[Rfam]
RNA sequence: CGCCUGAUCCGGGCCCCUCUGGCGCAGGCGCUUGCCUGCGUGAUGUCGGAUCGCGUGU
Numbered sequence: 001c002g003c004c005u006g007a008u009c010c011g012g013g014c015c016c017c018u019c020u021g022g023c024g025c026a027g028g029c030g031c032u033u034g035c036c037u038g039c040g041u042g043a044u045g046u047c048g049g050a051u052c053g054c055g056u057g058u
Base pairs, nucleotide, nucleotide: 006052007051008050009049010048011047012046022041023040024039025038026037027036028035029034